[Rfam]
RNA sequence: AUUUCAUAAGGUGAUGGCGUUCCACCUUACCUUAACCGCCCUCAGGGCUGAUGACGCCUGUCAUAAC
Numbered sequence: 001a002u003u004u005c006a007u008a009a010g011g012u013g014a015u016g017g018c019g020u021u022c023c024a025c026c027u028u029a030c031c032u033u034a035a036c037c038g039c040c041c042u043c044a045g046g047g048c049u050g051a052u053g054a055c056g057c058c059u060g061u062c063a064u065a066a067c
Base pairs, nucleotide, nucleotide: 010026011025012024013023016058017057018056019055020054021053038048039047040046

Rfam assigns this 67-nucleotide sequence from Sodalis praecaptivus to the family "Fluoride riboswitch aptamer (crcB RNA motif)". Rfam links the family to the GO terms response to fluoride and positive regulation of gene expression.